[Rfam]
A member of the RNA family "c-di-AMP riboswitch aptamer (ydaO/yuaA leader)" from Streptomyces daliensis, 199 nucleotides long. From the family's description: This family represents a conserved RNA structure found upstream of the ydaO and yuaA genes in Bacillus subtilis and related genes in other bacteria. The match comes from Rfam's covariance-model search (45 bits).
RNA sequence: GGGCGGCCACCGCCGAGUCCGGCCGCAGGGCCGGAGCCGGGGACCCACUCGCGUACGCCGCGCGACCACCGCGUGCCCGCGUGCCACCCGGGGUGAAUCGGCCCGUACGCGCCGCGUGAGCGGAGCGCUCCGGUCCGUAGGGCAGCCUUCCGACGCCCGAACCCGUCAGCUAACCCGGUAGGCGGUUCACGGAAGGAGU
Numbered sequence: 001g002g003g004c005g006g007c008c009a010c011c012g013c014c015g016a017g018u019c020c021g022g023c024c025g026c027a028g029g030g031c032c033g034g035a036g037c038c039g040g041g042g043a044c045c046c047a048c049u050c051g052c053g054u055a056c057g058c059c060g061c062g063c064g065a066c067c068a069c070c071g072c073g074u075g076c077c078c079g080c081g082u083g084c085c086a087c088c089c090g091g092g093g094u095g096a097a098u099c100g101g102c103c104c105g106u107a108c109g110c111g112c113c114g115c116g117u118g119a120g121c122g123g124a125g126c127g128c129u130c131c132g133g134u135c136c137g138u139a140g141g142g143c144a145g146c147c148u149u150c151c152g153a154c155g156c157c158c159g160a161a162c163c164c165g166u167c168a169g170c171u172a173a174c175c176c177g178g179u180a181g182g183c184g185g186u187u188c189a190c191g192g193a194a195g196g197a198g199u
Stems, first nucleotide, its partner, number of pairs: 011184004018035007036179006046090001091164003099137003140158004